[Rfam]
RNA sequence: CGAGAGAAUUAUGGUUAAGGAACUCGGCAAAAUGCCCCCGUAACUUCGGGAGAAGGGGGGCCCCAACCUUGAUGGACACUUGCUGUCCGGAGGGGAUCGGGGCCGCAGAGACCAGGGGGAAGCGACUGUUUACUAAAAACACAGGUCCGUGCGAAGUCGCAAGACGAUGUAUACGGACUGACUCCUGCCCGGUGCUGGAAGGUUAAGAGGACCGGUUAGCCCUUACGGGCGAAGCUGGGAAUUUAAGCCCCAGUAAACGGCGGUGGUAACUAUAACCAUCCUAAGGUAGCGAAAUUCCUUGUCGGGUAAGUUCCGACCUGCACGAAUGGAGUAACGACUUCCCCGCUGUCUCAACCAUAAACUCG
Numbered sequence: 001c002g003a004g005a006g007a008a009u010u011a012u013g014g015u016u017a018a019g020g021a022a023c024u025c026g027g028c029a030a031a032a033u034g035c036c037c038c039c040g041u042a043a044c045u046u047c048g049g050g051a052g053a054a055g056g057g058g059g060g061c062c063c064c065a066a067c068c069u070u071g072a073u074g075g076a077c078a079c080u081u082g083c084u085g086u087c088c089g090g091a092g093g094g095g096a097u098c099g100g101g102g103c104c105g106c107a108g109a110g111a112c113c114a115g116g117g118g119g120a121a122g123c124g125a126c127u128g129u130u131u132a133c134u135a136a137a138a139a140c141a142c143a144g145g146u147c148c149g150u151g152c153g154a155a156g157u158c159g160c161a162a163g164a165c166g167a168u169g170u171a172u173a174c175g176g177a178c179u180g181a182c183u184c185c186u187g188c189c190c191g192g193u194g195c196u197g198g199a200a201g202g203u204u205a206a207g208a209g210g211a212c213c214g215g216u217u218a219g220c221c222c223u224u225a226c227g228g229g230c231g232a233a234g235c236u237g238g239g240a241a242u243u244u245a246a247g248c249c250c251c252a253g254u255a256a257a258c259g260g261c262g263g264u265g266g267u268a269a270c271u272a273u274a275a276c277c278a279u280c281c282u283a284a285g286g287u288a289g290c291g292a293a294a295u296u297c298c299u300u301g302u303c304g305g306g307u308a309a310g311u312u313c314c315g316a317c318c319u320g321c322a323c324g325a326a327u328g329g330a331g332u333a334a335c336g337a338c339u340u341c342c343c344c345g346c347u348g349u350c351u352c353a354a355c356c357a358u359a360a361a362c363u364c365g
Base pairs, nucleotide, nucleotide: 001365002364003363004362009360010359011358012357013356014355015354016353018351019350020349035059036058037057038056039055044049060103061102062101063100064099073089074088075087076086077085078084104108116344117343118342119341120340121339122338123336124335127141128140129139144179145178146177147176148175149174150173151172152169156165157164158163182331183330184329185328187261188260189259192258193257194254195253196252197251198250201249202248203247207243208242212238213237214236215235216234219230220229221228222227262280263279264278265277266276267275281285291318301317302316303315304314305313306312
The record is a 365-nucleotide part of an RNA from Arthrobacter sunyaminii, which matches "Bacterial large subunit ribosomal RNA" in Rfam.